[Rfam]
RNA sequence: AAUUUCCUUCGGGGUCGGGUGAAAAUCCCAACCGGCGGUGAUGGAACACGAUUGUUCCUCAGUCCGUGACCCGCUCGGUAAUGUAUUAUCGAUCGGUGGACCUGGUGUAACUCCAGGACCGACAGUAUAGUCUGGAUGGGAGAAGGAUUUU
Dot-bracket structure: ....((((((......(((.......))).[[((((((.......................[[))))...((......................))....(((((.......)))))]])).(((....]]))).......))))))....
Numbered sequence: 001a002a003u004u005u006c007c008u009u010c011g012g013g014g015u016c017g018g019g020u021g022a023a024a025a026u027c028c029c030a031a032c033c034g035g036c037g038g039u040g041a042u043g044g045a046a047c048a049c050g051a052u053u054g055u056u057c058c059u060c061a062g063u064c065c066g067u068g069a070c071c072c073g074c075u076c077g078g079u080a081a082u083g084u085a086u087u088a089u090c091g092a093u094c095g096g097u098g099g100a101c102c103u104g105g106u107g108u109a110a111c112u113c114c115a116g117g118a119c120c121g122a123c124a125g126u127a128u129a130g131u132c133u134g135g136a137u138g139g140g141a142g143a144a145g146g147a148u149u150u151u
Stems, first nucleotide, its partner, number of pairs: 005147006017029003031131002033121002035067004062119002071096002101117005123134003

The record is a 151-nucleotide sequence from Salirhabdus euzebyi, which matches "FMN riboswitch aptamer (RFN element)" in Rfam. Taxonomically the source falls in Salirhabdus (Bacteria, Bacillati, Bacilli, Bacillaceae). The base pairs follow the family's consensus structure, which is taken from published work. About the family: The RFN element is a highly conserved domain that is found frequently in the 5'-untranslated regions of prokaryotic mRNAs that encode for flavin mononucleotide (FMN) biosynthesis and transport proteins.